[Rfam]
RNA sequence: AUUCUUCUAGCGACCGGUUUUCUCCGUGAUCUGCAGAGCUUUUGCAUACUUCUGAGAUCAUCGUGAAAGCCAGUUGCUUAAAAGAA
Numbered sequence: 001a002u003u004c005u006u007c008u009a010g011c012g013a014c015c016g017g018u019u020u021u022c023u024c025c026g027u028g029a030u031c032u033g034c035a036g037a038g039c040u041u042u043u044g045c046a047u048a049c050u051u052c053u054g055a056g057a058u059c060a061u062c063g064u065g066a067a068a069g070c071c072a073g074u075u076g077c078u079u080a081a082a083a084g085a086a
Stems, first nucleotide, its partner, number of pairs: 009078004016071007024063001027060006035053003038049001
RNA: mir-81 microRNA precursor family